[Rfam]
The record is an 84-nucleotide sequence from Halalkalibacter suaedae, which matches "c-di-GMP-I riboswitch aptamer" in Rfam. Taxonomically the source falls in Halalkalibacter (Bacteria, Bacillota, Bacilli, Caryophanales). GEMM was predicted in a large-scale screen for bacterial structured RNA regulatory elements.
RNA sequence: AAGAGAGAAAGGCAAAGCCAUUGAAAGGUGGCGACGCAAAGCUAAAGGGACUAAGGAUUUAUUCUAUGUUUGCCAGCUACCGUC
Numbered sequence: 001a002a003g004a005g006a007g008a009a010a011g012g013c014a015a016a017g018c019c020a021u022u023g024a025a026a027g028g029u030g031g032c033g034a035c036g037c038a039a040a041g042c043u044a045a046a047g048g049g050a051c052u053a054a055g056g057a058u059u060u061a062u063u064c065u066a067u068g069u070u071u072g073c074c075a076g077c078u079a080c081c082g083u084c
Stems, first nucleotide, its partner, number of pairs: 012037002017032006040078004047074002049070003056064002